[Rfam]
Annotation
Rfam assigns this 76-nucleotide sequence from Cnephaeus nilssonii to the family "mir-9229 microRNA precursor family". Its family is annotated with miRNA-mediated post-transcriptional gene silencing and RISC complex in the Gene Ontology. The family has 7 seed sequences and 27,225 matches in Rfam 15.1.

RNA sequence: GAGACACUCUUAUGAGGCAAGACUUGCUUCAGUGGGAUUUUGGUGCUCACUGAGUCUGCCUCCUGAGUGUGUCUCU
Numbered sequence: 001g002a003g004a005c006a007c008u009c010u011u012a013u014g015a016g017g018c019a020a021g022a023c024u025u026g027c028u029u030c031a032g033u034g035g036g037a038u039u040u041u042g043g044u045g046c047u048c049a050c051u052g053a054g055u056c057u058g059c060c061u062c063c064u065g066a067g068u069g070u071g072u073c074u075c076u
Stems, first nucleotide, its partner, number of pairs: 001075007009067004014062006021056003029053008037044002